This 43-nucleotide sequence from Afipia sp. P52-10 belongs to the Rfam family "Guanidine-II riboswitch aptamer (mini-ykkC)". NCBI's taxonomy places the organism under Bacteria, Pseudomonadati, Pseudomonadota, Hyphomicrobiales, Afipia. Its family is annotated with regulation of gene expression in the Gene Ontology. It scores 34 bits against the family's covariance model.
RNA sequence: UGCGCAGGACGACCUGCGUCAGCGUGUCGUUGGGGACGGCCCC
Numbered sequence: 001u002g003c004g005c006a007g008g009a010c011g012a013c014c015u016g017c018g019u020c021a022g023c024g025u026g027u028c029g030u031u032g033g034g035g036a037c038g039g040c041c042c043c
Stems, first nucleotide, its partner, number of pairs: 002019007032043004